[Rfam]
RNA: 23S methyl RNA motif
RNA sequence: AGUUCAUUGGUUUAUAUCAGUUAGCCAUCAGAUACUGAUAUAAGUAAAUGAAUAUGGAUGACUUAAUAACGUAUCAUUUCGCUGUUGCAUGACCGAAAUGAUACGUUUUUCU
Numbered sequence: 001a002g003u004u005c006a007u008u009g010g011u012u013u014a015u016a017u018c019a020g021u022u023a024g025c026c027a028u029c030a031g032a033u034a035c036u037g038a039u040a041u042a043a044g045u046a047a048a049u050g051a052a053u054a055u056g057g058a059u060g061a062c063u064u065a066a067u068a069a070c071g072u073a074u075c076a077u078u079u080c081g082c083u084g085u086u087g088c089a090u091g092a093c094c095g096a097a098a099u100g101a102u103a104c105g106u107u108u109u110u111c112u
Stems, first nucleotide, its partner, number of pairs: 002053007010045012068107014084093003